[Rfam]
RNA sequence: AAGGUGUAAGCUGAAAAACCUAAAAUAGAGUAAGUA
Numbered sequence: 001a002a003g004g005u006g007u008a009a010g011c012u013g014a015a016a017a018a019c020c021u022a023a024a025a026u027a028g029a030g031u032a033a034g035u036a
Stems, first nucleotide, its partner, number of pairs: 002021004010035003
RNA: DUF805b RNA